mir-24 microRNA precursor family: a 69-nucleotide sequence from Leptobrachium leishanense. This family represents the microRNA (miRNA) mir-24 family. miRNAs are transcribed as ~70nt precursors (modelled here) and subsequently processed by the Dicer enzyme to give a ~22nt product.
[Rfam]
RNA sequence: GUCUCCUGUACCUACUGAGCUGAUAAUCGGUGGGUAAUGUUCAUCUGGCUCAGUUCAGCAGGACAGGAG
Numbered sequence: 001g002u003c004u005c006c007u008g009u010a011c012c013u014a015c016u017g018a019g020c021u022g023a024u025a026a027u028c029g030g031u032g033g034g035u036a037a038u039g040u041u042c043a044u045c046u047g048g049c050u051c052a053g054u055u056c057a058g059c060a061g062g063a064c065a066g067g068a069g
Base pairs, nucleotide, nucleotide: 003069004068005067006066008064009063011062012061013060015058016057017056018055019054020053021052022051023050027048028047029046030045

The family has 63 seed sequences and 1,372 matches in Rfam 15.1. On this family, see Lagos-Quintana et al., Science 2001: "Identification of novel genes coding for small expressed RNAs". The source organism's lineage runs through Eukaryota, Opisthokonta, Euteleostomi, Pelobatoidea and Leptobrachium.